[Rfam]
RNA sequence: AUAAAGUACUGAUGGCAGUUAUGUUAAAGUAACUGAGGAAAGUCCGUACUCGCACUUGCUGGAAUGUAAGUAGUUUUAGUGCGAGGUCUAAUAAACCUCGGCGGGUUUUGUUUGUUUAUUUCUUACCCGACGGCUGACUAAAUACCUAAAUUCUUUUCCAUAAUUUUGAGUAUGGUAUUAAUCUAUAAAAGUGCUAUAGUGACGAUUACUAGGGAAACCUAGGAAGUGGAACGACGUAAACCCCGCUAGCGAGCAAUCCAAAUUCUUUUAAUUGGUAGGAGCACUAGAAAAAGAGAAUAAUAAUCUCAACUGGUAAUUCCCGACAAAAGGAAUUAAGACAGAUCAUCGGUUAAAACAGAAUACGGCUUAUUCUU
Numbered sequence: 001a002u003a004a005a006g007u008a009c010u011g012a013u014g015g016c017a018g019u020u021a022u023g024u025u026a027a028a029g030u031a032a033c034u035g036a037g038g039a040a041a042g043u044c045c046g047u048a049c050u051c052g053c054a055c056u057u058g059c060u061g062g063a064a065u066g067u068a069a070g071u072a073g074u075u076u077u078a079g080u081g082c083g084a085g086g087u088c089u090a091a092u093a094a095a096c097c098u099c100g101g102c103g104g105g106u107u108u109u110g111u112u113u114g115u116u117u118a119u120u121u122c123u124u125a126c127c128c129g130a131c132g133g134c135u136g137a138c139u140a141a142a143u144a145c146c147u148a149a150a151u152u153c154u155u156u157u158c159c160a161u162a163a164u165u166u167u168g169a170g171u172a173u174g175g176u177a178u179u180a181a182u183c184u185a186u187a188a189a190a191g192u193g194c195u196a197u198a199g200u201g202a203c204g205a206u207u208a209c210u211a212g213g214g215a216a217a218c219c220u221a222g223g224a225a226g227u228g229g230a231a232c233g234a235c236g237u238a239a240a241c242c243c244c245g246c247u248a249g250c251g252a253g254c255a256a257u258c259c260a261a262a263u264u265c266u267u268u269u270a271a272u273u274g275g276u277a278g279g280a281g282c283a284c285u286a287g288a289a290a291a292a293g294a295g296a297a298u299a300a301u302a303a304u305c306u307c308a309a310c311u312g313g314u315a316a317u318u319c320c321c322g323a324c325a326a327a328a329g330g331a332a333u334u335a336a337g338a339c340a341g342a343u344c345a346u347c348g349g350u351u352a353a354a355a356c357a358g359a360a361u362a363c364g365g366c367u368u369a370u371u372c373u374u
Stems, first nucleotide, its partner, number of pairs: 004374003008350007016035006040368003044365005049253005054071006077248005082100006101131001102129005132243002135185002143177004150171003191241002193237002206225002209222005257280003284313004314335006
This 374-nucleotide RNA sequence belongs to the Rfam family "Bacterial RNase P class B". The family's consensus secondary structure is taken from published work. Its family is annotated with dimeric ribonuclease P complex, ribonuclease P activity and tRNA processing in the Gene Ontology. A search with the family's covariance model found it, with a score of 209 bits. For this family Rfam cites "Ribonuclease P: unity and diversity in a tRNA processing ribozyme" (Frank and Pace, Annu Rev Biochem, 1998). From the family's description: Ribonuclease P (RNase P) is a ubiquitous endoribonuclease, found in archaea, bacteria and eukarya as well as chloroplasts and mitochondria. Its best characterised activity is the generation of mature 5'-ends of tRNAs by cleaving the 5'-leader elements of precursor-tRNAs. Cellular RNase Ps are ribonucleoproteins. RNA from bacterial RNase Ps retains its catalytic activity in the absence of the protein subunit, i.e. it is a ribozyme. Isolated eukaryotic and archaeal RNase P RNA has not been shown to retain its catalytic function, but is still essential for the catalytic activity of the holoenzyme. Although the archaeal and eukaryotic holoenzyme s have a much greater protein content than the bacterial ones, the RNA cores from all the three lineages are homologous -- helices corresponding to P1, P2, P3, P4, and P10/11 are common to all cellular RNase P RNAs. Yet, there is considerable sequence variation, particularly among the eukaryotic RNAs.